[Rfam]
RNA sequence: AUGAGGGCGACCAAAUGUGGGGAGGAAGCGUGGAGCGUAAAUCGCGAGCCGAUGGACAAGAACCGCAUAGAAGGCGUUGCCGAGCAGGGGGAGCGGGCAAGGAACCGCGAAGCUCUUGUGGUCAAGGCGAGGCGGCGUAGAUGCGGCGGUUGUGCGAUGAAGGAGUGCGUGC
Numbered sequence: 001a002u003g004a005g006g007g008c009g010a011c012c013a014a015a016u017g018u019g020g021g022g023a024g025g026a027a028g029c030g031u032g033g034a035g036c037g038u039a040a041a042u043c044g045c046g047a048g049c050c051g052a053u054g055g056a057c058a059a060g061a062a063c064c065g066c067a068u069a070g071a072a073g074g075c076g077u078u079g080c081c082g083a084g085c086a087g088g089g090g091g092a093g094c095g096g097g098c099a100a101g102g103a104a105c106c107g108c109g110a111a112g113c114u115c116u117u118g119u120g121g122u123c124a125a126g127g128c129g130a131g132g133c134g135g136c137g138u139a140g141a142u143g144c145g146g147c148g149g150u151u152g153u154g155c156g157a158u159g160a161a162g163g164a165g166u167g168c169g170u171g172c
Base pairs, nucleotide, nucleotide: 001016002015005012006011028172029171030170031169032168036163041158042157043156044155045154046153047151048150049149050148051147063146064145065144066143067142068141074138075137076136078134079133080132081131084128087115088114089113093108094107095106096105
Dot-bracket structure: ((..((....))..))...........(((((...(....(((((((((((...........((((((.....(((.((((..(..(((...((((........))))....)))............)..)))).)))..))))))))))).))))))....)....)))))
A member of the RNA family "Group II catalytic intron D1-D4-3" from Bordetella ansorpii, 172 nucleotides long. The match comes from Rfam's covariance-model search (101 bits). Group II introns are found in rRNA, tRNA and mRNA of organelles in fungi, plants and protists, and also in mRNA in bacteria. On this family, see Bonen and Vogel, Trends Genet 2001: "The ins and outs of group II introns". Taxonomically the source falls in Bordetella (Bacteria, Pseudomonadati, Betaproteobacteria, Burkholderiales). The base pairs follow the family's consensus structure.